[Rfam]
RNA sequence: AGUCAGUUUCAGGGCGGGGCGAAAUUCCCCACUGGCGGUAACGAAGGCGAGAAGCGUCGAAGAAGUCCGCGAGCCACCAUCACAAUGCGUGGUUGACCUGGUGUGAGUCCAGGACCAACGGUUACAGUCCGGAUGGAAGAAACGGAGG
Numbered sequence: 001a002g003u004c005a006g007u008u009u010c011a012g013g014g015c016g017g018g019g020c021g022a023a024a025u026u027c028c029c030c031a032c033u034g035g036c037g038g039u040a041a042c043g044a045a046g047g048c049g050a051g052a053a054g055c056g057u058c059g060a061a062g063a064a065g066u067c068c069g070c071g072a073g074c075c076a077c078c079a080u081c082a083c084a085a086u087g088c089g090u091g092g093u094u095g096a097c098c099u100g101g102u103g104u105g106a107g108u109c110c111a112g113g114a115c116c117a118a119c120g121g122u123u124a125c126a127g128u129c130c131g132g133a134u135g136g137a138a139g140a141a142a143c144g145g146a147g148g
Stems, first nucleotide, its partner, number of pairs: 003146002006143005017029003031128002033117002035070004065115002073093003097113005119131003

Background:
This 148-nucleotide RNA sequence from Olsenella sp. KH1P3 belongs to the Rfam family "FMN riboswitch aptamer (RFN element)". The organism belongs to Olsenella, within Bacteria. It scores 109 bits against the family's covariance model. The family's consensus secondary structure is taken from published work.